The record is a 237-nucleotide part of an RNA, which matches "Bacterial large subunit ribosomal RNA" in Rfam. It scores 1388 bits against the family's covariance model.
Nucleotides: 237
Base pairs, nucleotide, nucleotide: 005094006093007092008091009090010089011088012087013086014085015084016083017082021044022043023042024041026038027037028036048058049057060075061074062073064072065071097235098234100232104224105223108220112198113197114196115195116194117192119190120189121187123157124156125155129154133149134148135147136146137145161184162183163182167179168178169177200210201209202208
Number, partner (000 for none) and nucleotide at each position: 001000g002000a003000g004000u005094u006093a007092a008091c009090g010089u011088u012087g013086c014085c015084g016083g017082c018000c019000a020000a021044g022043g023042a024041u025000a026038a027037u028036g029000u030000u031000u032000a033000a034000g035000c036028c037027a038026u039000g040000g041024a042023u043022c044021c045000g046000c047000a048058c049057g050000c051000g052000a053000a054000a055000a056000g057049c058048g059000a060075u061074g062073u063000u064072c065071u066000g067000a068000a069000c070000u071065a072064g073062g074061c075060g076000g077000c078000u079000u080000u081000a082017g083016u084015c085014g086013g087012c088011a089010g090009u091008g092007u093006u094005a095000g096000a097235c098234g099000c100232g101000a102000a103000a104224c105223g106000u107000u108220g109000g110000a111000u112198c113197u114196a115195c116194c117192a118000u119190g120189g121187c122000a123157g124156g125155u126000g127000a128000u129154u130000g131000a132000a133149g134148c135147u136146g137145g138000g139000u140000a141000a142000a143000c144000a145137c146136c147135a148134g149133u150000g151000g152000a153000g154129g155125a156124c157123c158000g159000a160000a161184c162183c163182g164000g165000u166000u167179g168178a169177c170000g171000u172000u173000g174000a175000a176000a177169g178168u179167u180000c181000u182163c183162g184161g185000a186000u187121g188000a189120c190119c191000u192117u193000g194116g195115g196114u197113a198112g199000g200210g201209g202208u203000g204000a205000a206000a207000g208202g209201c210200c211000a212000a213000u214000c215000a216000a217000a218000a219000a220108c221000u222000u223105c224104g225000u226000a227000a228000a229000u230000a231000g232100c233000u234098c235097g236000u237000a